[Rfam]
RNA sequence: UCGGCUGGCUAUGCGGUCGCGGGAGGUGUGCCUCUCGAGGAAAGUCCGGACACCGAAGGGCGCGGGCGGUGGGUGAAUCCCACCCGGGGAAACCCGCGGGAAAGUGCCACAGAAACACACGGCCGAUGGCGCGCCAGUCACGUGAGCGCGCACAGGUAAAGGUGAAAGGGUGCGGUAAGAGCGCACCGGCGUCGCGGCGACGCGGCGGCCAGGCAAACCCCGCCCGGUGCAAGGCCAAGCAGGAUCGUUGACCCGGCCCGGCGAGAUCCAGGUGGGCCGCAGGGCGAAAGCCCCGCCGAGACCCAGGUCCCGGCGAGACGGAUGACCGCGCAAGACAGAAUCCGGCUUACCGGCCAGCUAAGGAA
Numbered sequence: 001u002c003g004g005c006u007g008g009c010u011a012u013g014c015g016g017u018c019g020c021g022g023g024a025g026g027u028g029u030g031c032c033u034c035u036c037g038a039g040g041a042a043a044g045u046c047c048g049g050a051c052a053c054c055g056a057a058g059g060g061c062g063c064g065g066g067c068g069g070u071g072g073g074u075g076a077a078u079c080c081c082a083c084c085c086g087g088g089g090a091a092a093c094c095c096g097c098g099g100g101a102a103a104g105u106g107c108c109a110c111a112g113a114a115a116c117a118c119a120c121g122g123c124c125g126a127u128g129g130c131g132c133g134c135c136a137g138u139c140a141c142g143u144g145a146g147c148g149c150g151c152a153c154a155g156g157u158a159a160a161g162g163u164g165a166a167a168g169g170g171u172g173c174g175g176u177a178a179g180a181g182c183g184c185a186c187c188g189g190c191g192u193c194g195c196g197g198c199g200a201c202g203c204g205g206c207g208g209c210c211a212g213g214c215a216a217a218c219c220c221c222g223c224c225c226g227g228u229g230c231a232a233g234g235c236c237a238a239g240c241a242g243g244a245u246c247g248u249u250g251a252c253c254c255g256g257c258c259c260g261g262c263g264a265g266a267u268c269c270a271g272g273u274g275g276g277c278c279g280c281a282g283g284g285c286g287a288a289a290g291c292c293c294c295g296c297c298g299a300g301a302c303c304c305a306g307g308u309c310c311c312g313g314c315g316a317g318a319c320g321g322a323u324g325a326c327c328g329c330g331c332a333a334g335a336c337a338g339a340a341u342c343c344g345g346c347u348u349a350c351c352g353g354c355c356a357g358c359u360a361a362g363g364a365a
Base pairs, nucleotide, nucleotide: 001361003359004358005357006356007355008354009353010352012330013329014328015327016326017325018324020037021036022035023034024033025032026031042348043347044346046345047344048343049342050341051229052228053227054226058259059258060257061256064225065224066223067222068221069083070082071081072080073079084098085096086095087094088093099220100219104218105217106214107213108212120161122157123156124155127154128153169187170186171185172184173183174182189209190207191206192205193204194203195202196201233278234277235276236275242269243268244267245266246265253261254260
The family of this 365-nucleotide RNA from a Solirubrobacterales bacterium is "Bacterial RNase P class A".
Rfam's curators write: Ribonuclease P (RNase P) is a ubiquitous endoribonuclease, found in archaea, bacteria and eukarya as well as chloroplasts and mitochondria. Its best characterised activity is the generation of mature 5'-ends of tRNAs by cleaving the 5'-leader elements of precursor-tRNAs.
The base pairs follow the family's consensus structure, which is taken from published work.